Shown here is a 97-nucleotide RNA sequence from Moritella sp. Urea-trap-13, a member of the family "Bacterial small signal recognition particle RNA". The family's consensus secondary structure is taken from published work. Rfam classes the family as a non-coding RNA gene. Rfam's curators write: The signal recognition particle (SRP) is a universally conserved ribonucleoprotein involved in the co-translational targeting of proteins to membranes. Lineage of the source: Bacteria > Pseudomonadota > Gammaproteobacteria > Alteromonadales > Moritella.
RNA sequence: UAUGGGUCCCUCCGCAUUGAUACUCUGUGAACUCGGCCAGGUCCGGAAGGAAGCAACCGCAGCAGAUGAUUCAAGUGCCGGAGUGAGGCUUGUAGGG
Number, nucleotide and partner (000 for none) at each position: 001u000002a000003u000004g091005g090006g089007u088008c087009c000010c083011u082012c081013c080014g079015c075016a000017u074018u073019g072020a071021u000022a000023c000024u066025c065026u064027g063028u062029g000030a000031a000032c000033u000034c059035g058036g057037c000038c000039a000040g000041g000042u051043c050044c049045g000046g000047a000048a000049g044050g043051a042052a000053g000054c000055a000056a000057c036058c035059g034060c000061a000062g028063c027064a026065g025066a024067u000068g000069a000070u000071u020072c019073a018074a017075g015076u000077g000078c000079c014080g013081g012082a011083g010084u000085g000086a000087g008088g007089c006090u005091u004092g000093u000094a000095g000096g000097g000